[Rfam]
RNA sequence: GUUGCAAGUUUGAGACCACAGCAGAAACAUUCAUGGCGUGGCCUGUCAGAUUCCAACAAAUCAGGUAAUUCUGCU
Numbered sequence: 001g002u003u004g005c006a007a008g009u010u011u012g013a014g015a016c017c018a019c020a021g022c023a024g025a026a027a028c029a030u031u032c033a034u035g036g037c038g039u040g041g042c043c044u045g046u047c048a049g050a051u052u053c054c055a056a057c058a059a060a061u062c063a064g065g066u067a068a069u070u071c072u073g074c075u
Stems, first nucleotide, its partner, number of pairs: 012043001016041002020075007027039002047064001049062004
Dot-bracket structure: ...........[...[[..(((((((((.........))]].]...(.((((......)))).)....)))))))
RNA: Mammalian CPEB3 ribozyme
Organism: Alligator mississippiensis